[Rfam]
RNA sequence: UUUUUAGCAUAAGUAUAUCCCGUGUCAUACAUGGGAUAUACUUAUGCUAAAA
Numbered sequence: 001u002u003u004u005u006a007g008c009a010u011a012a013g014u015a016u017a018u019c020c021c022g023u024g025u026c027a028u029a030c031a032u033g034g035g036a037u038a039u040a041c042u043u044a045u046g047c048u049a050a051a052a
Base pairs, nucleotide, nucleotide: 006048007047008046009045010044011043012042014040015039016038018036019035020034021033
Record summary:
The record is a 52-nucleotide RNA sequence from Camelus dromedarius, which matches "mir-1302 microRNA precursor family" in Rfam. The family's consensus secondary structure was predicted with WAR. Gene Ontology terms of the family: RISC complex and miRNA-mediated post-transcriptional gene silencing.